[Rfam]
This 178-nucleotide RNA from Diceros bicornis belongs to the Rfam family "Small nucleolar RNA SNORA81".

Nucleotides: 178
Base pairs, nucleotide, nucleotide: 017075018074020072021071022070023069024068028064029063030062033056034055036053037052038051041047042046101170102169103168104167105166107164121149125145126144128142
Number, partner (000 for none) and nucleotide at each position: 001000a002000c003000c004000u005000u006000c007000u008000u009000a010000u011000u012000u013000a014000g015000c016000u017075c018074u019000g020072u021071g022070c023069u024068a025000a026000c027000a028064u029063u030062g031000c032000a033056g034055a035000a036053a037052c038051u039000c040000u041047a042046u043000c044000a045000u046042g047041u048000c049000u050000u051038a052037g053036u054000a055034u056033u057000u058000g059000u060000a061000a062030u063029a064028a065000a066000g067000c068024u069023a070022g071021c072020a073000g074018a075017g076000u077000a078000a079000a080000a081000c082000a083000c084000a085000a086000g087000a088000a089000g090000a091000g092000a093000a094000a095000c096000a097000a098000c099000a100000c101170u102169a103168c104167c105166a106000c107164a108000c109000a110000g111000u112000a113000g114000a115000a116000a117000a118000a119000c120000u121149g122000a123000g124000a125145u126144g127000a128142a129000c130000c131000u132000c133000u134000u135000u136000c137000u138000u139000a140000a141000g142128u143000g144126c145125a146000g147000g148000c149121u150000a151000c152000u153000u154000u155000g156000u157000u158000c159000u160000a161000a162000g163000a164107u165000u166105u167104g168103g169102u170101a171000c172000a173000a174000u175000a176000a177000u178000a
For this family Rfam cites "A novel experimental approach for systematic identification of box H/ACA snoRNAs from eukaryotes" (Gu et al., Nucleic Acids Res, 2005).
The family's consensus secondary structure was predicted with WAR.
Gene Ontology terms of the family: RNA processing and nucleolus.
The source organism's lineage runs through Eukaryota, Dipnotetrapodomorpha, Amniota, Theria and Diceros bicornis.